RNA: FMN riboswitch aptamer (RFN element)
RNA sequence: AGUAACCUUCAGGACUGGGUGAAAUUCCCAACCGGCGGUGAACCUUUGCUGAUGAAGGAAGCCCGCGAGCCCCAAAGGGGUUGAUUUGGUGGAAAUCCAAAGCCGACAGUUAAAGUCUGGAUGGGAGAAGGUGUUG
Numbered sequence: 001a002g003u004a005a006c007c008u009u010c011a012g013g014a015c016u017g018g019g020u021g022a023a024a025u026u027c028c029c030a031a032c033c034g035g036c037g038g039u040g041a042a043c044c045u046u047u048g049c050u051g052a053u054g055a056a057g058g059a060a061g062c063c064c065g066c067g068a069g070c071c072c073c074a075a076a077g078g079g080g081u082u083g084a085u086u087u088g089g090u091g092g093a094a095a096u097c098c099a100a101a102g103c104c105g106a107c108a109g110u111u112a113a114a115g116u117c118u119g120g121a122u123g124g125g126a127g128a129a130g131g132u133g134u135u136g
Stems, first nucleotide, its partner, number of pairs: 005132006017029003031116002033105002035066004061103002069081003085101005107119003